[Rfam]
RNA sequence: CCCCCAGGGGGAAGCGAAGACCCUAUGGAGCUUUACUGCAAGCUGCCGCUGAGACAUGGUCGCUGAUGUGCAGAAUAGGUAGGAGUCGUUACAGAGGUACCCGCGCCAGCGGGCCACCCAGACACCACUGAAAUACUACCCGUCAGUGACUGUGACUCUCACUCCGGGAGGAGAACACCGGUAGCUGGGCAGUUUGACUGGGGCGGUACGCGCUCGAAAUGAUAUCGAGCGCGCCCUAAGUCCACCUCAUUCGGGUCGGGAACCCGAAGAAGAGUGCAAGAGCAAAAGGUGGAUUGACAGUGUCAUUCCUAACGAGUGACGCUGACACGAAAGUGUGGUCUAGCGAACCAAUGAGCCUGCCCGAUGCGGGCCAUUGACGACAGAAAAGCUACCCUAGGGAUAACAGAGUCGUCACCGGCAAGAGCACAUAUCGACCCGGUGGCUUGCUACCUCGAUGUCGGUUCCCUCCAUCCUGCCCGUGCAGAAGCGGGCAAGGGUGAGGUUGUUCGCCUAUUAAAGGAGGUCGUGAGCUGGGUUUAGACCGUCGUGAGACAGGUCGGCUGCUAUCUACUGGGGGUGUA
Numbered sequence: 001c002c003c004c005c006a007g008g009g010g011g012a013a014g015c016g017a018a019g020a021c022c023c024u025a026u027g028g029a030g031c032u033u034u035a036c037u038g039c040a041a042g043c044u045g046c047c048g049c050u051g052a053g054a055c056a057u058g059g060u061c062g063c064u065g066a067u068g069u070g071c072a073g074a075a076u077a078g079g080u081a082g083g084a085g086u087c088g089u090u091a092c093a094g095a096g097g098u099a100c101c102c103g104c105g106c107c108a109g110c111g112g113g114c115c116a117c118c119c120a121g122a123c124a125c126c127a128c129u130g131a132a133a134u135a136c137u138a139c140c141c142g143u144c145a146g147u148g149a150c151u152g153u154g155a156c157u158c159u160c161a162c163u164c165c166g167g168g169a170g171g172a173g174a175a176c177a178c179c180g181g182u183a184g185c186u187g188g189g190c191a192g193u194u195u196g197a198c199u200g201g202g203g204c205g206g207u208a209c210g211c212g213c214u215c216g217a218a219a220u221g222a223u224a225u226c227g228a229g230c231g232c233g234c235c236c237u238a239a240g241u242c243c244a245c246c247u248c249a250u251u252c253g254g255g256u257c258g259g260g261a262a263c264c265c266g267a268a269g270a271a272g273a274g275u276g277c278a279a280g281a282g283c284a285a286a287a288g289g290u291g292g293a294u295u296g297a298c299a300g301u302g303u304c305a306u307u308c309c310u311a312a313c314g315a316g317u318g319a320c321g322c323u324g325a326c327a328c329g330a331a332a333g334u335g336u337g338g339u340c341u342a343g344c345g346a347a348c349c350a351a352u353g354a355g356c357c358u359g360c361c362c363g364a365u366g367c368g369g370g371c372c373a374u375u376g377a378c379g380a381c382a383g384a385a386a387a388g389c390u391a392c393c394c395u396a397g398g399g400a401u402a403a404c405a406g407a408g409u410c411g412u413c414a415c416c417g418g419c420a421a422g423a424g425c426a427c428a429u430a431u432c433g434a435c436c437c438g439g440u441g442g443c444u445u446g447c448u449a450c451c452u453c454g455a456u457g458u459c460g461g462u463u464c465c466c467u468c469c470a471u472c473c474u475g476c477c478c479g480u481g482c483a484g485a486a487g488c489g490g491g492c493a494a495g496g497g498u499g500a501g502g503u504u505g506u507u508c509g510c511c512u513a514u515u516a517a518a519g520g521a522g523g524u525c526g527u528g529a530g531c532u533g534g535g536u537u538u539a540g541a542c543c544g545u546c547g548u549g550a551g552a553c554a555g556g557u558c559g560g561c562u563g564c565u566a567u568c569u570a571c572u573g574g575g576g577g578u579g580u581a
Base pairs, nucleotide, nucleotide: 001577002576003575004574005573006572007571010569011568012567014564015563022398023397024396025395027394028393029390030389031388032387033386035193036192037191038190042185043184044183045182046181047180048179051158052157053156055154056153057152058151059150060149061148062147063146064145065144066143067142068141078140079139080138081137082136085123086122087121100113101112102111103110104109162173163172164171165170196209197207198206199205210232211231212230213229214228215227235338236337241293242292243291244290245289246288247273248272250268251267252266253265254264255263274283275282298324299323300322301321302320303319304318305317306316326335328333349376350375351374352373353372355371356370357369358368359367407448408447409446411445412442413441414440415439416438417437418436422432423431459534460532461531462530463529464526465523466522467521468520469519472497473496476491477490478489479488480487500512501511502510503509540558541557542556543555544553545552546551
The family of this 581-nucleotide part of an RNA from Haloglomus irregulare is "Archaeal large subunit ribosomal RNA".
Pairs were carried over by alignment from the consensus structure, which is taken from published work.